mir-4529 microRNA precursor family: a 78-nucleotide RNA from Homo sapiens. The base pairs follow the family's consensus structure, which was predicted with RNAalifold. NCBI's taxonomy places the organism under Eukaryota, Deuterostomia, Euteleostomi, Hominoidea, Homo.
RNA sequence: AUGACAGGCCAUCAGCAGUCCAAUGAAGACAUGAAGACCCAAUGUCUUCAUUGGACUGCUGAUGGCCCGUCACUGGGA
Numbered sequence: 001a002u003g004a005c006a007g008g009c010c011a012u013c014a015g016c017a018g019u020c021c022a023a024u025g026a027a028g029a030c031a032u033g034a035a036g037a038c039c040c041a042a043u044g045u046c047u048u049c050a051u052u053g054g055a056c057u058g059c060u061g062a063u064g065g066c067c068c069g070u071c072a073c074u075g076g077g078a
Base pairs, nucleotide, nucleotide: 002072003071004070005069007067008066009065010064011063012062013061014060015059016058017057018056019055020054021053022052023051024050025049026048027047028046029045030044031043032042